SAM riboswitch aptamer (S box leader): a 139-nucleotide RNA sequence from an Armatimonadota bacterium. Its family is annotated with regulation of gene expression in the Gene Ontology. The SAM riboswitch is found upstream of a number of genes which code for proteins involved in methionine or cysteine biosynthesis in Gram-positive bacteria. The SAM riboswitch acts at the level of transcription termination control. The predicted structure consists of a complex stem-loop region followed by a single stem loop terminator region.
[Rfam]
RNA sequence: ACCUUAUCCAGAGUGGCGGAGGGACCGGCCCUACGAUGCCACCACAACCACUGUCCGCGCCCAUCCGCGCGGCGGCAGGUGCGAAUUCCGGGCAUGGGUAUCCCGUCUGAACUUCAGACUCCCCUGCAAAAGAUAAGGA
Numbered sequence: 001a002c003c004u005u006a007u008c009c010a011g012a013g014u015g016g017c018g019g020a021g022g023g024a025c026c027g028g029c030c031c032u033a034c035g036a037u038g039c040c041a042c043c044a045c046a047a048c049c050a051c052u053g054u055c056c057g058c059g060c061c062c063a064u065c066c067g068c069g070c071g072g073c074g075g076c077a078g079g080u081g082c083g084a085a086u087u088c089c090g091g092g093c094a095u096g097g098g099u100a101u102c103c104c105g106u107c108u109g110a111a112c113u114u115c116a117g118a119c120u121c122c123c124c125u126g127c128a129a130a131a132g133a134u135a136a137g138g139a
Stems, first nucleotide, its partner, number of pairs: 002138007013042005021031003025091004043083001045081002048079002051075005087131001092127003096123003